[Rfam]
RNA sequence: AAGUCAGAUGGGGAUGGAGUCCCCCGAUACCCGCCCGUCGUGGGCUGAUGACUCCUGCUGAGUU
Numbered sequence: 001a002a003g004u005c006a007g008a009u010g011g012g013g014a015u016g017g018a019g020u021c022c023c024c025c026g027a028u029a030c031c032c033g034c035c036c037g038u039c040g041u042g043g044g045c046u047g048a049u050g051a052c053u054c055c056u057g058c059u060g061a062g063u064u
Base pairs, nucleotide, nucleotide: 010025011024012023013022016055017054018053019052020051021050033045034044035043036042

This 64-nucleotide RNA from Candidatus Afipia apatlaquensis belongs to the Rfam family "Fluoride riboswitch aptamer (crcB RNA motif)". The family has 289 seed sequences and 2,293 matches in Rfam 15.1. The organism belongs to Afipia, within Bacteria.